[Rfam]
RNA sequence: AUACAAUUUAUUCUCCGAGCUUGGCAUGCCUAAGCAAGGUACGGCAGCCAAGCCGUUAGGGUACGGGCGGGAAACCCCCGUGCCUCCCGGUGCGGAAAGGAGAAGGCGGCUGUUUGGAA
Numbered sequence: 001a002u003a004c005a006a007u008u009u010a011u012u013c014u015c016c017g018a019g020c021u022u023g024g025c026a027u028g029c030c031u032a033a034g035c036a037a038g039g040u041a042c043g044g045c046a047g048c049c050a051a052g053c054c055g056u057u058a059g060g061g062u063a064c065g066g067g068c069g070g071g072a073a074a075c076c077c078c079c080g081u082g083c084c085u086c087c088c089g090g091u092g093c094g095g096a097a098a099g100g101a102g103a104a105g106g107c108g109g110c111u112g113u114u115u116g117g118a119a
Stems, first nucleotide, its partner, number of pairs: 003113002011104006019053007027046004034040002059085006066079002069076002086095002
Dot-bracket structure: ..((......((((((..(((((((.((((...((...))..))))))))))).....((((((.((.((....)).))))))))((......))...)))))).......))......
RNA: Molybdenum/Tungsten riboswitch aptamer (Moco RNA motif)
Organism: Pelotomaculum thermopropionicum